[Rfam]
RNA sequence: UCAUUUGCCGAUGCAGCAUCAUCAAGAUUCUCAUCUUGAUUUUAAUUAUUAGAAGCAAUAUGUUUCUGCUCCACAUAAUUUGUAUGUGAAUCUUGAUAAUGCUGCAGCUGCAAGUAA
Numbered sequence: 001u002c003a004u005u006u007g008c009c010g011a012u013g014c015a016g017c018a019u020c021a022u023c024a025a026g027a028u029u030c031u032c033a034u035c036u037u038g039a040u041u042u043u044a045a046u047u048a049u050u051a052g053a054a055g056c057a058a059u060a061u062g063u064u065u066c067u068g069c070u071c072c073a074c075a076u077a078a079u080u081u082g083u084a085u086g087u088g089a090a091u092c093u094u095g096a097u098a099a100u101g102c103u104g105c106a107g108c109u110g111c112a113a114g115u116a117a
Stems, first nucleotide, its partner, number of pairs: 010108001012106008021097010032086002